Notes
A member of the RNA family "Fluoride riboswitch aptamer (crcB RNA motif)" from Williamsia sp. Leaf354, 72 nucleotides long. Pairs were carried over by alignment from the consensus structure, which is taken from published work. The organism belongs to Williamsia, within Bacteria. A reference for the family is Baker et al. (2012), "Widespread genetic switches and toxicity resistance proteins for fluoride", Science. It scores 42 bits against the family's covariance model.
RNA sequence: GACGAACACGGUGAUGGAUCCCGCCGGAGCAUCUGCUCGAACCGCCACACGGCUGAUGGUUCCUACCCAUGU
Numbered sequence: 001g002a003c004g005a006a007c008a009c010g011g012u013g014a015u016g017g018a019u020c021c022c023g024c025c026g027g028a029g030c031a032u033c034u035g036c037u038c039g040a041a042c043c044g045c046c047a048c049a050c051g052g053c054u055g056a057u058g059g060u061u062c063c064u065a066c067c068c069a070u071g072u
Stems, first nucleotide, its partner, number of pairs: 010025004016063003020059002044053003